[Rfam]
RNA: Small nucleolar RNA SNORA20
Organism: Odontophorus gujanensis
RNA sequence: AAUCCCAUUUAUUUGCUUCCAUGCUAUCUCAGUGGCAUGAGUAGUUAUACGCAUGGGAAAGAGUAUAUCAAGUCCACUGCAAAUGAGAGGUGAAAGUAUUUCAUCUUGUCUGCUGGGGCUGGACAACU
Numbered sequence: 001a002a003u004c005c006c007a008u009u010u011a012u013u014u015g016c017u018u019c020c021a022u023g024c025u026a027u028c029u030c031a032g033u034g035g036c037a038u039g040a041g042u043a044g045u046u047a048u049a050c051g052c053a054u055g056g057g058a059a060a061g062a063g064u065a066u067a068u069c070a071a072g073u074c075c076a077c078u079g080c081a082a083a084u085g086a087g088a089g090g091u092g093a094a095a096g097u098a099u100u101u102c103a104u105c106u107u108g109u110c111u112g113c114u115g116g117g118g119c120u121g122g123a124c125a126a127c128u
Stems, first nucleotide, its partner, number of pairs: 003058006015045003019041001022037002025035001069122001071120005079113003087107009